[Rfam]
RNA sequence: CUCCGAUGAUGAUCCAGCCAUGCUAAUACUGAUGCGCCAGGCAGAUGCAGUGCGUCUGCCUGGGUGUAAGUGAGUGCUACUUGACUUCUCACACUGAUAGUAUCGGUGU
Numbered sequence: 001c002u003c004c005g006a007u008g009a010u011g012a013u014c015c016a017g018c019c020a021u022g023c024u025a026a027u028a029c030u031g032a033u034g035c036g037c038c039a040g041g042c043a044g045a046u047g048c049a050g051u052g053c054g055u056c057u058g059c060c061u062g063g064g065u066g067u068a069a070g071u072g073a074g075u076g077c078u079a080c081u082u083g084a085c086u087u088c089u090c091a092c093a094c095u096g097a098u099a100g101u102a103u104c105g106g107u108g109u
Stems, first nucleotide, its partner, number of pairs: 001108001003106002042058005
RNA: Small nucleolar RNA U6-53/MBII-28
Organism: Cottoperca gobio